[Rfam]
Cyano-1 RNA: a 70-nucleotide sequence. Rfam 15.1 lists 283 matches to the family in 194 species. It is annotated as a small RNA.
RNA sequence: AGAUGUGUGAAGGAGUGGCUUUACUAAAACAGUGGAAACAAGGAAACACUUGAUUUAGUAAUACCAAGAA
Dot-bracket structure: ...............(((..(..((....(((((............))).))....))..)..)))....